[Rfam]
RNA sequence: AAUUCUGUUCAAGUAAGAACAAAGAGAAGCAGAUCUAUUCUAUACAGCUAAGUAACCAAUACGCAGAAUGG
Numbered sequence: 001a002a003u004u005c006u007g008u009u010c011a012a013g014u015a016a017g018a019a020c021a022a023a024g025a026g027a028a029g030c031a032g033a034u035c036u037a038u039u040c041u042a043u044a045c046a047g048c049u050a051a052g053u054a055a056c057c058a059a060u061a062c063g064c065a066g067a068a069u070g071g
Stems, first nucleotide, its partner, number of pairs: 003024002006021005045070002052062003

Shown here is a 71-nucleotide RNA from Musa balbisiana, a member of the family "Plastid-clpP 5UTR RNA". It is annotated as a cis-regulatory element. A search with the family's covariance model found it, with a score of 60 bits. The family's consensus secondary structure was predicted with LocARNA. The organism belongs to Musa, within Eukaryota. For this family Rfam cites "Retrograde signaling in plants: A critical review focusing on the GUN pathway and beyond" (Richter et al., Plant Commun, 2023). Rfam's curators write: Plastid clpP is a non-coding RNA (ncRNA) recognised in plastids. It was found in the prime untranslated region (5UTR) of a protease complex subunit (clpP) in plastids, suggesting a posible cis-regulatory function.